Overview:
The record is a 62-nucleotide RNA sequence from Tolypothrix tenuis, which matches "Nitrogen stress-induced RNA 1" in Rfam. Taxonomically the source falls in Tolypothrix tenuis (Bacteria, Bacillati, Tolypothrichaceae, Tolypothrix). By type it is a small RNA. Pairs were carried over by alignment from the consensus structure.
Nucleotides: 062
Base pairs, nucleotide, nucleotide: 002013003012004011027054028053029052030051031050032049033048034047035046036045037044
Number, partner (000 for none) and nucleotide at each position: 001000u002013g003012g004011u005000a006000g007000a008000u009000g010000c011004a012003c013002c014000c015000u016000g017000a018000u019000a020000a021000c022000u023000a024000a025000c026000u027054c028053c029052c030051c031050u032049g033048g034047u035046a036045g037044g038000c039000u040000a041000a042000c043000a044037c045036u046035u047034a048033c049032u050031g051030g052029g053028g054027g055000u056000u057000u058000u059000u060000u061000c062000u